RNA sequence: GUUUUUUUAGGUUUAGACUUUUGUGACUUUUAAGUGAGAAAAUCUAAACCUAAAGAAAAUA
Numbered sequence: 001g002u003u004u005u006u007u008u009a010g011g012u013u014u015a016g017a018c019u020u021u022u023g024u025g026a027c028u029u030u031u032a033a034g035u036g037a038g039a040a041a042a043u044c045u046a047a048a049c050c051u052a053a054a055g056a057a058a059a060u061a
Stems, first nucleotide, its partner, number of pairs: 002058016019041004
Annotation
This 61-nucleotide RNA sequence from Salmo salar belongs to the Rfam family "mir-737 microRNA precursor family". Pairs were carried over by alignment from the consensus structure, which was predicted with RNAalifold. Lineage of the source: Eukaryota > Chordata > Euteleosteomorpha > Protacanthopterygii > Salmo.